[Rfam]
permuted transfer-messenger RNA: a 187-nucleotide RNA sequence from Pelagibacterales bacterium SAG-MED05. For this family Rfam cites "Phylogenetic analysis of tmRNA secondary structure" (Williams and Bartel, RNA, 1996).
RNA sequence: GACGAUAAACGAAUUUCGUAAUAAACAUUACGGACGUGGGGGCAGUACCCACCACCUCCACCAUUUACAACUUACGGGGGUGAAUUAGGAUCGACGGAUGUCUAAAAGCUAUUCUUUCGUACGAGAUGGUUCCGACGUAACGGACCAAUUUACAAAUGCUAACGAAAGUUACGCACUUGCUGCUUAA
Numbered sequence: 001g002a003c004g005a006u007a008a009a010c011g012a013a014u015u016u017c018g019u020a021a022u023a024a025a026c027a028u029u030a031c032g033g034a035c036g037u038g039g040g041g042g043c044a045g046u047a048c049c050c051a052c053c054a055c056c057u058c059c060a061c062c063a064u065u066u067a068c069a070a071c072u073u074a075c076g077g078g079g080g081u082g083a084a085u086u087a088g089g090a091u092c093g094a095c096g097g098a099u100g101u102c103u104a105a106a107a108g109c110u111a112u113u114c115u116u117u118c119g120u121a122c123g124a125g126a127u128g129g130u131u132c133c134g135a136c137g138u139a140a141c142g143g144a145c146c147a148a149u150u151u152a153c154a155a156a157u158g159c160u161a162a163c164g165a166a167a168g169u170u171a172c173g174c175a176c177u178u179g180c181u182g183c184u185u186a187a
Stems, first nucleotide, its partner, number of pairs: 002120004014111001017108001026100003031096002036052005053082007122137002